This 128-nucleotide sequence from Microtus ochrogaster belongs to the Rfam family "U8 small nucleolar RNA". The base pairs follow the family's consensus structure, which is taken from published work. For this family Rfam cites "The U8 snoRNA gene family: identification and characterization of distinct, functional U8 genes in Xenopus" (Peculis et al., Gene, 2001). The match comes from Rfam's covariance-model search (52 bits). It is annotated as a C/D-box small nucleolar RNA.
[Rfam]
RNA sequence: UGGUAGGUGGAUAAUUUAUUUAUUCCUCUUUUCAGGGGGCAAGACAGAACAUGAUUAAAGUGUGCAUCAGUUGUGAUUAGCAUCUUUUACAGUCACUACAUGCAAUACCCUGCUUGCUCUUGUCUGAU
Numbered sequence: 001u002g003g004u005a006g007g008u009g010g011a012u013a014a015u016u017u018a019u020u021u022a023u024u025c026c027u028c029u030u031u032u033c034a035g036g037g038g039g040c041a042a043g044a045c046a047g048a049a050c051a052u053g054a055u056u057a058a059a060g061u062g063u064g065c066a067u068c069a070g071u072u073g074u075g076a077u078u079a080g081c082a083u084c085u086u087u088u089a090c091a092g093u094c095a096c097u098a099c100a101u102g103c104a105a106u107a108c109c110c111u112g113c114u115u116g117c118u119c120u121u122g123u124c125u126g127a128u
Base pairs, nucleotide, nucleotide: 020042021041024039025038026037027036028035029034069085072082073081074079090116091115092114094112095111